[Rfam]
RNA sequence: GUCAGAAACUCCUCACACACAUUUUUCUGAUAAUGCGAAGUACUCAAGCGAUCGUUUGAGUACUUUUUAUUUAACCUUG
Numbered sequence: 001g002u003c004a005g006a007a008a009c010u011c012c013u014c015a016c017a018c019a020c021a022u023u024u025u026u027c028u029g030a031u032a033a034u035g036c037g038a039a040g041u042a043c044u045c046a047a048g049c050g051a052u053c054g055u056u057u058g059a060g061u062a063c064u065u066u067u068u069a070u071u072u073a074a075c076c077u078u079g
Stems, first nucleotide, its partner, number of pairs: 001031008037066009